[Rfam]
RNA sequence: CGCUCCUUUAAUCUGGUCCAGCGAGGCCAGAAAGGAAAGUCCAUGCCAAUUACGAAGACCAGCUCAGAAGUAGACAGCAAUGCCCCCUCGAUGCGAGGGGGCUUUUUUUUG
Numbered sequence: 001c002g003c004u005c006c007u008u009u010a011a012u013c014u015g016g017u018c019c020a021g022c023g024a025g026g027c028c029a030g031a032a033a034g035g036a037a038a039g040u041c042c043a044u045g046c047c048a049a050u051u052a053c054g055a056a057g058a059c060c061a062g063c064u065c066a067g068a069a070g071u072a073g074a075c076a077g078c079a080a081u082g083c084c085c086c087c088u089c090g091a092u093g094c095g096a097g098g099g100g101g102c103u104u105u106u107u108u109u110u111g
Stems, first nucleotide, its partner, number of pairs: 004036006013030006044076002047073001049071003053067001056064002077107001079105002082102009
RNA: PyrR binding site
Organism: bacterium HR30